[Rfam]
RNA: SAM riboswitch aptamer (S box leader)
RNA sequence: UUCUUAUCACGAGAGGCGGAGGGACUGGCCCUACGAUGUCUCGGCAGCGGGCUCAUUGCAAAUGAGUGCUGUGCCAAAUCCAGCAAGAUUACACUUGAAAGAUGAGAA
Numbered sequence: 001u002u003c004u005u006a007u008c009a010c011g012a013g014a015g016g017c018g019g020a021g022g023g024a025c026u027g028g029c030c031c032u033a034c035g036a037u038g039u040c041u042c043g044g045c046a047g048c049g050g051g052c053u054c055a056u057u058g059c060a061a062a063u064g065a066g067u068g069c070u071g072u073g074c075c076a077a078a079u080c081c082a083g084c085a086a087g088a089u090u091a092c093a094c095u096u097g098a099a100a101g102a103u104g105a106g107a108a
Base pairs, nucleotide, nucleotide: 001108002107003106004105005104006103007102008101013042014041015040016039017038021031022030023029025083026082027081028080043075044074045073046072048071049070051067052066053065054064079100084097085096086095087094
Dot-bracket structure: ((((((((....(((((...(((.[[[[)))......)))))((((.((.((((.........))))..))))))...(]]]]((((......))))..)))))))))